RNA sequence: CAAGCCUGCAAGGAUCAGAAGGUCUGAACAGGUCCCUCAGAUCCGCCGAAAGGUUGAACUGAGAUGAAAGGGUGGUUUUUAUGGAUGUCUUUUGUCCACCCGUCAAAGCCCUCCAUGCCUCUCGCUGGCGAGAAAUUUGGAGAGGAAUCAAAAACUAGUCCUAGUU
Numbered sequence: 001c002a003a004g005c006c007u008g009c010a011a012g013g014a015u016c017a018g019a020a021g022g023u024c025u026g027a028a029c030a031g032g033u034c035c036c037u038c039a040g041a042u043c044c045g046c047c048g049a050a051a052g053g054u055u056g057a058a059c060u061g062a063g064a065u066g067a068a069a070g071g072g073u074g075g076u077u078u079u080u081a082u083g084g085a086u087g088u089c090u091u092u093u094g095u096c097c098a099c100c101c102g103u104c105a106a107a108g109c110c111c112u113c114c115a116u117g118c119c120u121c122u123c124g125c126u127g128g129c130g131a132g133a134a135a136u137u138u139g140g141a142g143a144g145g146a147a148u149c150a151a152a153a154a155c156u157a158g159u160c161c162u163a164g165u166u
Stems, first nucleotide, its partner, number of pairs: 007030002011025002014023003035066001036063005042057002047052001084160003087155002090153005109145002111142004120133005